[Rfam]
RNA sequence: GGUCAUGAGUGUCAGCGACAAGCCCCGGCUCGCUGACCGGCAACCCUCCACUCGCGGUGGGGUGCCCCGGGUGAGGACCUGGUCGCGGACCCUCGGGUCCCGGCAAGCGCGGGGC
Numbered sequence: 001g002g003u004c005a006u007g008a009g010u011g012u013c014a015g016c017g018a019c020a021a022g023c024c025c026c027g028g029c030u031c032g033c034u035g036a037c038c039g040g041c042a043a044c045c046c047u048c049c050a051c052u053c054g055c056g057g058u059g060g061g062g063u064g065c066c067c068c069g070g071g072u073g074a075g076g077a078c079c080u081g082g083u084c085g086c087g088g089a090c091c092c093u094c095g096g097g098u099c100c101c102g103g104c105a106a107g108c109g110c111g112g113g114g115c
Stems, first nucleotide, its partner, number of pairs: 001079004009038001011037006021030002039066003044062003048057002082104004087100005
SAM (S-adenosyl methionine) riboswitch aptamer: a 115-nucleotide sequence from Lapillicoccus jejuensis. For this family Rfam cites "The aptamer core of SAM-IV riboswitches mimics the ligand-binding site of SAM-I riboswitches" (Weinberg et al., RNA, 2008). Rfam describes the family as follows. SAM-IV is a mRNA element that regulates gene expression via direct sensing of S-adenosylmethionine (SAM or AdoMet). Rfam links the family to the GO terms regulation of gene expression and S-adenosylmethionine metabolic process. The family's consensus secondary structure is taken from published work. It scores 111 bits against the family's covariance model.